About this RNA: This 63-nucleotide RNA sequence from Ictalurus punctatus belongs to the Rfam family "mir-132 microRNA precursor family". The literature on the family includes a 2005 paper in Genes Dev by Chen et al., "The developmental miRNA profiles of zebrafish as determined by small RNA cloning". Lineage of the source: Eukaryota > Eumetazoa > Chordata > Ostariophysi > Ictalurus.
RNA sequence: ACCGUGGCAUUAGAUUGUUACUGUAGGAACAGAAUUUUUGGUAACAGUCUACAGCCAUGGUCG
Numbered sequence: 001a002c003c004g005u006g007g008c009a010u011u012a013g014a015u016u017g018u019u020a021c022u023g024u025a026g027g028a029a030c031a032g033a034a035u036u037u038u039u040g041g042u043a044a045c046a047g048u049c050u051a052c053a054g055c056c057a058u059g060g061u062c063g
Stems, first nucleotide, its partner, number of pairs: 002060002005057004013049010